Shown here is a 126-nucleotide RNA sequence from Halomonas alimentaria, a member of the family "Ribosomal S15 leader". Rfam's curators write: The E. coli Ribosomal S15 gene 5' UTR can form two alternative structures. One that is a series of three hairpins, The other includes a pseudoknot. This structure causes translational regulation of the S15 protein. The alignment of this family contains only the final two hairpins which are conserved in other species, and also includes the complete region that forms the alternate structures. The family's consensus secondary structure is taken from published work. Rfam classes the family as a cis-regulatory leader. Its Rfam clan is "Ribosomal Protein S15 Leader clan".
RNA sequence: CGCGGAGACUGCAAAUAUGCGUGGUCUCACACAUUCAUCAUUCAGGCAUAUUGCUUACUGGAGAGACAGAUGGCACUCACAGCCGAACAGAAGGCCUCAAUCGUCAACGAAUUCGGUCGUGGCGAU
Numbered sequence: 001c002g003c004g005g006a007g008a009c010u011g012c013a014a015a016u017a018u019g020c021g022u023g024g025u026c027u028c029a030c031a032c033a034u035u036c037a038u039c040a041u042u043c044a045g046g047c048a049u050a051u052u053g054c055u056u057a058c059u060g061g062a063g064a065g066a067c068a069g070a071u072g073g074c075a076c077u078c079a080c081a082g083c084c085g086a087a088c089a090g091a092a093g094g095c096c097u098c099a100a101u102c103g104u105c106a107a108c109g110a111a112u113u114c115g116g117u118c119g120u121g122g123c124g125a126u
Base pairs, nucleotide, nucleotide: 007026008025009024010023011022012021052079053078060077061076063074

Lineage of the source: Bacteria > Pseudomonadota > Oceanospirillales > Halomonadaceae > Halomonas. On this family, see Benard et al., Biochimie 1996: "Pseudoknot and translational control in the expression of the S15 ribosomal protein".